[Rfam]
RNA: Bacterial RNase P class A
RNA sequence: CCGGGGGGCCGGGCAGCCGCGUCGCAUCACGGGGAAAUCCUGAUGUGCCGAGGAAAGUCCGGGCUCCACGAAACGAGGAUGGCGGGUAACGCCCGCCGGGCGAGGCGAUGGUGCAAUGCGCACCGCGCCGAAGCUCAGGGACAGUGCCACAGAGAGCAGACCGCCGAUGGUCCGGCAACGGACACAGGCAAGGGUGAAAGGGUGCGGCAAGAGCGCACCGCGCGGCCGGCAACGGUUCGCGGCAUGGUAAACCCCAUCCGGAGCAAGACCGAAUAGGGGCGGCGCGCCGAAGGCUUCGUGCCAAAGGCAGGUCCGUUUCGGACCGUGAUCGCCCGGGUUGGUUGCUGGAACGCCGUGGCGACAUGGCGUCUAGAGGAAUGGCUGCCAUCGUGCGCCGCGUCCGCCGCCGCCCGCAAGGGCACGGCGGAAACGGGCGCGCGAUACAGAACCCGGCUUACAGGCCCCCCGGCAUC
Numbered sequence: 001c002c003g004g005g006g007g008g009c010c011g012g013g014c015a016g017c018c019g020c021g022u023c024g025c026a027u028c029a030c031g032g033g034g035a036a037a038u039c040c041u042g043a044u045g046u047g048c049c050g051a052g053g054a055a056a057g058u059c060c061g062g063g064c065u066c067c068a069c070g071a072a073a074c075g076a077g078g079a080u081g082g083c084g085g086g087u088a089a090c091g092c093c094c095g096c097c098g099g100g101c102g103a104g105g106c107g108a109u110g111g112u113g114c115a116a117u118g119c120g121c122a123c124c125g126c127g128c129c130g131a132a133g134c135u136c137a138g139g140g141a142c143a144g145u146g147c148c149a150c151a152g153a154g155a156g157c158a159g160a161c162c163g164c165c166g167a168u169g170g171u172c173c174g175g176c177a178a179c180g181g182a183c184a185c186a187g188g189c190a191a192g193g194g195u196g197a198a199a200g201g202g203u204g205c206g207g208c209a210a211g212a213g214c215g216c217a218c219c220g221c222g223c224g225g226c227c228g229g230c231a232a233c234g235g236u237u238c239g240c241g242g243c244a245u246g247g248u249a250a251a252c253c254c255c256a257u258c259c260g261g262a263g264c265a266a267g268a269c270c271g272a273a274u275a276g277g278g279g280c281g282g283c284g285c286g287c288c289g290a291a292g293g294c295u296u297c298g299u300g301c302c303a304a305a306g307g308c309a310g311g312u313c314c315g316u317u318u319c320g321g322a323c324c325g326u327g328a329u330c331g332c333c334c335g336g337g338u339u340g341g342u343u344g345c346u347g348g349a350a351c352g353c354c355g356u357g358g359c360g361a362c363a364u365g366g367c368g369u370c371u372a373g374a375g376g377a378a379u380g381g382c383u384g385c386c387a388u389c390g391u392g393c394g395c396c397g398c399g400u401c402c403g404c405c406g407c408c409g410c411c412c413g414c415a416a417g418g419g420c421a422c423g424g425c426g427g428a429a430a431c432g433g434g435c436g437c438g439c440g441a442u443a444c445a446g447a448a449c450c451c452g453g454c455u456u457a458c459a460g461g462c463c464c465c466c467c468g469g470c471a472u473c
Stems, first nucleotide, its partner, number of pairs: 001469010011458001012386007020050002023047006055456003059453005064263004073318001075316001077259005082096005097138001098136004139254002144252002146248003161193002163189003168184002171181001201219006220243001221241005226235003267343004277334006310324005350369008